[Rfam]
Notes: The record is a 109-nucleotide RNA sequence, which matches "Actinomyces-1 RNA" in Rfam. It is annotated as a small RNA. The family's consensus secondary structure is taken from published work.
Nucleotides: 109
Base pairs, nucleotide, nucleotide: 006103007102008101009100010099011098012097013059014058015057018054019053020052021051022050023049024048028041029040030039031038032037061094062093063092064091066089070085071084072083073082
Number, partner (000 for none) and nucleotide at each position: 001000g002000u003000c004000a005000c006103c007102g008101c009100c010099g011098g012097a013059c014058g015057g016000g017000a018054g019053u020052g021051g022050u023049c024048g025000u026000g027000a028041g029040g030039g031038u032037u033000g034000g035000g036000g037032a038031a039030c040029c041028c042000g043000a044000u045000g046000a047000c048024c049023g050022g051021c052020u053019a054018c055000g056000a057015c058014c059013g060000a061094g062093g063092u064091g065000a066089c067000c068000a069000a070085g071084g072083g073082u074000c075000u076000a077000a078000g079000g080000g081000a082073g083072c084071c085070c086000g087000a088000g089066g090000g091064c092063g093062c094061c095000g096000c097012u098011u099010c100009g101008g102007c103006g104000a105000a106000g107000g108000a109000g